The record is a 50-nucleotide RNA from Mesorhizobium japonicum, which matches "Guanidine-II riboswitch aptamer (mini-ykkC)" in Rfam. Pairs were carried over by alignment from the consensus structure, which is taken from published work. From the family's description: Simpler in structure and has fewer highly conserved nucleotide positions than the ykkC-yxkD leader. Despite this each of its two stem-loop structures directly bind free guanidine. Therefore, mini-ykkC RNA motif represents a distinct class of guanidine-sensing RNAs. Its crystal structure was also determined. Gene Ontology term of the family: regulation of gene expression.
[Rfam]
RNA sequence: GCGCGGGGACGACCCCGCGCCUCCCCAAGAAUUCGGUCGGGACGACCCGC
Numbered sequence: 001g002c003g004c005g006g007g008g009a010c011g012a013c014c015c016c017g018c019g020c021c022u023c024c025c026c027a028a029g030a031a032u033u034c035g036g037u038c039g040g041g042a043c044g045a046c047c048c049g050c
Stems, first nucleotide, its partner, number of pairs: 001020008038049004